[Rfam]
RNA: Metazoan signal recognition particle RNA
Organism: Smittium simulii
RNA sequence: ACUUGGAGCCUCGCAAGCUUCUGUAAACUCUAGCAGAGGAGUCUUGAUAAGUGUAGAUUAAGUAGUCAUGUUUAAGAGUCUCUUGAGACCGAAGUUAUAGUAUGUGUCCGUCUAAAGCGUGAUGAUUGACAUUAUUAUCCUAGCGUAGGCUUGUGGAUAUUAUGGUCAUUAAUGACUUGGGCACCGCGUGAGGCUGGCAACAGAGCAACGAAAACUAAGCGCAUUGCGUCUGUUAGAGGAUUGCACAUAUGUACUACUCAUGAUUAGUUAAUCUACCUUAUCUUUU
Numbered sequence: 001a002c003u004u005g006g007a008g009c010c011u012c013g014c015a016a017g018c019u020u021c022u023g024u025a026a027a028c029u030c031u032a033g034c035a036g037a038g039g040a041g042u043c044u045u046g047a048u049a050a051g052u053g054u055a056g057a058u059u060a061a062g063u064a065g066u067c068a069u070g071u072u073u074a075a076g077a078g079u080c081u082c083u084u085g086a087g088a089c090c091g092a093a094g095u096u097a098u099a100g101u102a103u104g105u106g107u108c109c110g111u112c113u114a115a116a117g118c119g120u121g122a123u124g125a126u127u128g129a130c131a132u133u134a135u136u137a138u139c140c141u142a143g144c145g146u147a148g149g150c151u152u153g154u155g156g157a158u159a160u161u162a163u164g165g166u167c168a169u170u171a172a173u174g175a176c177u178u179g180g181g182c183a184c185c186g187c188g189u190g191a192g193g194c195u196g197g198c199a200a201c202a203g204a205g206c207a208a209c210g211a212a213a214a215c216u217a218a219g220c221g222c223a224u225u226g227c228g229u230c231u232g233u234u235a236g237a238g239g240a241u242u243g244c245a246c247a248u249a250u251g252u253a254c255u256a257c258u259c260a261u262g263a264u265u266a267g268u269u270a271a272u273c274u275a276c277c278u279u280a281u282c283u284u285u286u
Stems, first nucleotide, its partner, number of pairs: 001042003005021005011015001028038002046282006055274007063266008075258002078255001100250008108239002111237005116231002118228007126221001127168004133162002136159005142151003176219005187210003194203003
Dot-bracket structure: (((.(((((.(...).)))))......((.......)).)))...((((((...(((((((.((((((((....((.(.....................((((((((((.((((((((((((((.(((((..((.(((((.(((....)))...))))).))..)))).......(((((......(((....(((....)))....)))....))))).)))))))).)).)))))))...))))))))....).)))))))))).)))))))..))))))....